[Rfam]
RNA sequence: UACCCCUUGGUAAAAAUUGUUGUAACGGCAGGGGUUAGUAAGAGGCUGGUUUCCAGCCUGCCCAAUAUCCCUGAAACUAUAAAAAAG
Numbered sequence: 001u002a003c004c005c006c007u008u009g010g011u012a013a014a015a016a017u018u019g020u021u022g023u024a025a026c027g028g029c030a031g032g033g034g035u036u037a038g039u040a041a042g043a044g045g046c047u048g049g050u051u052u053c054c055a056g057c058c059u060g061c062c063c064a065a066u067a068u069c070c071c072u073g074a075a076a077c078u079a080u081a082a083a084a085a086a087g
Stems, first nucleotide, its partner, number of pairs: 001012004019077003029073007042061001043059007
Background:
The family of this 87-nucleotide RNA is "RT-18 RNA". It is one of the family's seed sequences. Rfam classes the family as a small RNA.